[Rfam]
RNA sequence: UACAUACGUAGAGGUGCAAACGUUAUAAGUAUAUUUUCAGAGUGGAUAACGAUGAAGAAAAUGGAAAGGAACGUUUGCCGAAAUCAGUUAAAAGUCGUUUUAACUGGUUGGUGGCGUCUUCGAAAGAACCGUCACUGUCAUAGUCAAUAACAACUAUGGAGCGCUACUGGUUAG
Numbered sequence: 001u002a003c004a005u006a007c008g009u010a011g012a013g014g015u016g017c018a019a020a021c022g023u024u025a026u027a028a029g030u031a032u033a034u035u036u037u038c039a040g041a042g043u044g045g046a047u048a049a050c051g052a053u054g055a056a057g058a059a060a061a062u063g064g065a066a067a068g069g070a071a072c073g074u075u076u077g078c079c080g081a082a083a084u085c086a087g088u089u090a091a092a093a094g095u096c097g098u099u100u101u102a103a104c105u106g107g108u109u110g111g112u113g114g115c116g117u118c119u120u121c122g123a124a125a126g127a128a129c130c131g132u133c134a135c136u137g138u139c140a141u142a143g144u145c146a147a148u149a150a151c152a153a154c155u156a157u158g159g160a161g162c163g164c165u166a167c168u169g170g171u172u173a174g
Base pairs, nucleotide, nucleotide: 008167009166010165011164016078017077018076019075020074021073022072023071024070032063033062034061035060036059037058038057082109083108084107085106086105087104088103089102090101091100092099093098110136111135112134113133114132115131116130119127120126138159139158140157141156142155143154144153